[Rfam]
RNA sequence: GGUCACGAGUGCCAGCGACCAACGAUCACCGCCCCCAGGCCCAUCGCCUGUCGGCCGGUGGUCGAAGCCCCGGCUUGCUGGCCGGCAACCCUCCUAGAGGUUCGCGGUGGGGUGCCCCGGGUGAUGACCGGGCCCAGCCCGAUCCGUGUGCUGGGCAAGCGCGGACC
Number, nucleotide and partner (000 for none) at each position: 001g129002g128003u127004c126005a000006c000007g000008a000009g083010u000011g082012c081013c080014a079015g078016c077017g000018a000019c000020c000021a075022a000023c000024g000025a000026u000027c000028a000029c000030c000031g000032c000033c000034c000035c000036c000037a000038g000039g000040c000041c000042c000043a000044u000045c000046g000047c000048c000049u000050g000051u000052c000053g000054g000055c000056c000057g000058g000059u000060g000061g000062u000063c000064g000065a000066a000067g000068c000069c000070c000071c000072g000073g000074c000075u021076u000077g016078c015079u014080g013081g012082c011083c009084g116085g115086c114087a000088a000089c112090c111091c110092u000093c107094c106095u000096a000097g000098a000099g000100g000101u000102u000103c000104g000105c000106g094107g093108u000109g000110g091111g090112g089113u000114g086115c085116c084117c000118c000119g000120g000121g000122u000123g000124a000125u000126g004127a003128c002129c001130g000131g000132g156133c155134c154135c153136a152137g151138c150139c000140c148141g147142a000143u000144c000145c000146g000147u141148g140149u000150g138151c137152u136153g135154g134155g133156c132157a000158a000159g000160c000161g000162c000163g000164g000165a000166c000167c000